[Rfam]
Record summary: Shown here is a 54-nucleotide sequence from Paenibacillus aquistagni, a member of the family "uup RNA". The family's RNA type in Rfam is cis-regulatory element.

RNA sequence: CCAGAGGCUGCUCCGCACAAUUGGAACAACAAACGAUGAAGCGUUGUCCGGAGC
Number, nucleotide and partner (000 for none) at each position: 001c000002c000003a000004g000005a000006g000007g000008c000009u000010g000011c053012u052013c051014c050015g049016c000017a047018c046019a045020a044021u043022u000023g000024g000025a000026a000027c000028a000029a000030c000031a000032a000033a000034c000035g000036a000037u000038g000039a000040a000041g000042c000043g021044u020045u019046g018047u017048c000049c015050g014051g013052a012053g011054c000